[Rfam]
RNA sequence: AUACCGGUUUAACUUCGUGGUGAUAUGACACAUAUUACAUUCUUUAUCACCGGGAGUAAAACUGGUAUAGGAUCUGCGACUCGC
Dot-bracket structure: (.((((((((.(((((.(.((((((...................)))))).)))))).)))))))).)................

A member of the RNA family "mir-36 microRNA precursor family" from Caenorhabditis remanei, 84 nucleotides long. Pairs were carried over by alignment from the consensus structure, which was predicted with WAR. The family has 46 seed sequences and 199 matches in Rfam 15.1. Its family is annotated with RISC complex and miRNA-mediated post-transcriptional gene silencing in the Gene Ontology. For this family Rfam cites "Patterns of flanking sequence conservation and a characteristic upstream motif for microRNA gene identification" (Ohler et al., RNA, 2004). The source organism's lineage runs through Eukaryota, Eumetazoa, Nematoda, Rhabditina and Caenorhabditis.